Record summary
A member of the RNA family "c-di-AMP riboswitch aptamer (ydaO/yuaA leader)" from Gloeocapsa sp. PCC 7428, 154 nucleotides long. It scores 54 bits against the family's covariance model.
[Rfam]
RNA sequence: GUUAGAAGAAAGCUAGAGCGGAGGAACCGAAUUGUGGGGCGUAUCUCUUGAGCCUUAAUUAUCCUAUUCAGCCCGAAAAUUAAGGUAGAAAGUAGAAGGACAUCUCUCAGUCCUAGCCCGUCAGCUAACUUCGUAGGCAUCGAGAGGAGACUGA
Numbered sequence: 001g002u003u004a005g006a007a008g009a010a011a012g013c014u015a016g017a018g019c020g021g022a023g024g025a026a027c028c029g030a031a032u033u034g035u036g037g038g039g040c041g042u043a044u045c046u047c048u049u050g051a052g053c054c055u056u057a058a059u060u061a062u063c064c065u066a067u068u069c070a071g072c073c074c075g076a077a078a079a080u081u082a083a084g085g086u087a088g089a090a091a092g093u094a095g096a097a098g099g100a101c102a103u104c105u106c107u108c109a110g111u112c113c114u115a116g117c118c119c120g121u122c123a124g125c126u127a128a129c130u131u132c133g134u135a136g137g138c139a140u141c142g143a144g145a146g147g148a149g150a151c152u153g154a
Stems, first nucleotide, its partner, number of pairs: 002015001018134006028036002037119003045095002048092001098113004